[Rfam]
RNA sequence: AGCAAAAGUAGAGGUUGCGCGAAUCAAGAGUAGACCGCCGGAUGCAGCAGGUGCAGACGAGGGCGGUGGAAAGGGAGAGCGCCGAAGAGGAGUACUUCCUGACAGUACAAAUCUGGGCAUAUGGUGAAGAACCUUAUGACUGUCAUCCGUGUCUGGAUGGGGAGCUACUUAAAGG
Dot-bracket structure: .....((((((.....((((...((........((((((......................)))))).......))..))))...(((...(((((.......)))))...)))((.((((.(((.....))).)))).)).(((((((....)))))))....)))))).....
Numbered sequence: 001a002g003c004a005a006a007a008g009u010a011g012a013g014g015u016u017g018c019g020c021g022a023a024u025c026a027a028g029a030g031u032a033g034a035c036c037g038c039c040g041g042a043u044g045c046a047g048c049a050g051g052u053g054c055a056g057a058c059g060a061g062g063g064c065g066g067u068g069g070a071a072a073g074g075g076a077g078a079g080c081g082c083c084g085a086a087g088a089g090g091a092g093u094a095c096u097u098c099c100u101g102a103c104a105g106u107a108c109a110a111a112u113c114u115g116g117g118c119a120u121a122u123g124g125u126g127a128a129g130a131a132c133c134u135u136a137u138g139a140c141u142g143u144c145a146u147c148c149g150u151g152u153c154u155g156g157a158u159g160g161g162g163a164g165c166u167a168c169u170u171a172a173a174g175g
Stems, first nucleotide, its partner, number of pairs: 006170006017082004024076002034067006086114003092108005115141002118138004123133003143160007
Overview
Rfam assigns this 175-nucleotide RNA from Hungatella hathewayi to the family "Lysine riboswitch aptamer". Gene Ontology term of the family: lysine biosynthetic process. The source organism's lineage runs through Bacteria, Clostridia, Lachnospirales, Lachnospiraceae and Hungatella hathewayi.